[Rfam]
RNA sequence: UCGUGAAGUAGAGGCGCGGCUUUUAUGAGUAUUCAAAUCGGAGAUGCAGAGAAAUUGAUGAUGAUUUGAAGAAAGGAAAAGUCGCCGAAGUUUGUUUCGCUUUCUCUGGGCGAACAAGCUGGGGCUGUUUCCGAACAGGGACAGCACUGUCACGAUCAGAUUGGCAUCGUGGAGUGCUAUCUUCAAC
Dot-bracket structure: .....(.((((....(((((((((........((((((((.....................)))))))).......)))))))))...(((((((.(((((.......))))))))))))((.((((((((......)))))))).)).(((((((.........)))))))....)))).).....
The record is a 187-nucleotide sequence from Thermoflavimicrobium dichotomicum, which matches "Lysine riboswitch aptamer" in Rfam. The family's consensus secondary structure is taken from published work. A reference for the family is Mandal et al. (2003), "Riboswitches Control Fundamental Biochemical Pathways in Bacillus subtilis and Other Bacteria", Cell. A search with the family's covariance model found it, with a score of 129 bits.